Shown here is a 148-nucleotide RNA from Gottfriedia endophytica, a member of the family "FMN riboswitch aptamer (RFN element)". It scores 112 bits against the family's covariance model.
[Rfam]
RNA sequence: UUUGUCCUUCGGGGUCAGGUGAAAUUCCUAACCGGCAGUAAAUGAGAGUAUAUACUUUCAAAGCCUGUGAGCUUGUUAGCAUUAGUUAACUUGCUGAUCUAGUGAGAGUCUAGAGCCGACAGUAUAGUCUGGAUGGGAGAAGGAUGAG
Numbered sequence: 001u002u003u004g005u006c007c008u009u010c011g012g013g014g015u016c017a018g019g020u021g022a023a024a025u026u027c028c029u030a031a032c033c034g035g036c037a038g039u040a041a042a043u044g045a046g047a048g049u050a051u052a053u054a055c056u057u058u059c060a061a062a063g064c065c066u067g068u069g070a071g072c073u074u075g076u077u078a079g080c081a082u083u084a085g086u087u088a089a090c091u092u093g094c095u096g097a098u099c100u101a102g103u104g105a106g107a108g109u110c111u112a113g114a115g116c117c118g119a120c121a122g123u124a125u126a127g128u129c130u131g132g133a134u135g136g137g138a139g140a141a142g143g144a145u146g147a148g
Stems, first nucleotide, its partner, number of pairs: 003146008017029003031128002033118002035068004063116002071094002098114005120131003

Rfam links the family to the GO term FMN binding.